[Rfam]
RNA: T-box leader
Organism: Bacillus gobiensis
RNA sequence: GAUAAUUCGUUGAAGGAUCUGAGUAAACUGAUGUCCUGUUCAAAGAGAGAAGCUCUGUUCGCUGAAAGGAGCUUUAGCAGAAGGGCAGUUGAAGCUAAUCCUAAAGAGCAGGAAAAGCCUGCCGAGCAUUCCAGCGUUAAUGGAAAUUAAGGUGAUGGGUGAAUAAACCCAUAAUCAGGGUGGUACCGCGAGUAAGCUCUCGUCCCUGUA
Numbered sequence: 001g002a003u004a005a006u007u008c009g010u011u012g013a014a015g016g017a018u019c020u021g022a023g024u025a026a027a028c029u030g031a032u033g034u035c036c037u038g039u040u041c042a043a044a045g046a047g048a049g050a051a052g053c054u055c056u057g058u059u060c061g062c063u064g065a066a067a068g069g070a071g072c073u074u075u076a077g078c079a080g081a082a083g084g085g086c087a088g089u090u091g092a093a094g095c096u097a098a099u100c101c102u103a104a105a106g107a108g109c110a111g112g113a114a115a116a117g118c119c120u121g122c123c124g125a126g127c128a129u130u131c132c133a134g135c136g137u138u139a140a141u142g143g144a145a146a147u148u149a150a151g152g153u154g155a156u157g158g159g160u161g162a163a164u165a166a167a168c169c170c171a172u173a174a175u176c177a178g179g180g181u182g183g184u185a186c187c188g189c190g191a192g193u194a195a196g197c198u199c200u201c202g203u204c205c206c207u208g209u210a
Base pairs, nucleotide, nucleotide: 007106015101016100017099018098026090027089028088029087030086040077051073052072053071054070055069056068109121110120111119123136124135155172156171157170158169159168160167177207178206179205180204188203189202190201191200192199